RNA sequence: UCUGGCAAUGAUGCCACUCUUGCCCUCACUGAGAACACUGUUCGAUAAUGAGCCUCACCAUGCGCUCGAACAAGCUGAGCCAGA
Numbered sequence: 001u002c003u004g005g006c007a008a009u010g011a012u013g014c015c016a017c018u019c020u021u022g023c024c025c026u027c028a029c030u031g032a033g034a035a036c037a038c039u040g041u042u043c044g045a046u047a048a049u050g051a052g053c054c055u056c057a058c059c060a061u062g063c064g065c066u067c068g069a070a071c072a073a074g075c076u077g078a079g080c081c082a083g084a
Base pairs, nucleotide, nucleotide: 001084002083003082004081005080006079